[Rfam]
RNA sequence: GGGUCCAGAGAUACGUCCUGUUAUUUCUGGAGGUUAAGAAGGUUGGAUAGCCGGGCCGCUAUCU
Number, nucleotide and partner (000 for none) at each position: 001g000002g000003g000004u000005c030006c029007a028008g027009a026010g025011a024012u023013a000014c000015g000016u000017c000018c000019u000020g000021u000022u000023a012024u011025u010026u009027c008028u007029g006030g005031a000032g000033g000034u000035u000036a000037a000038g000039a000040a000041g000042g000043u000044u000045g064046g063047a062048u061049a060050g059051c058052c000053g000054g000055g000056c000057c000058g051059c050060u049061a048062u047063c046064u045
RNA: nhaA-I RNA
Organism: Syntrophaceae bacterium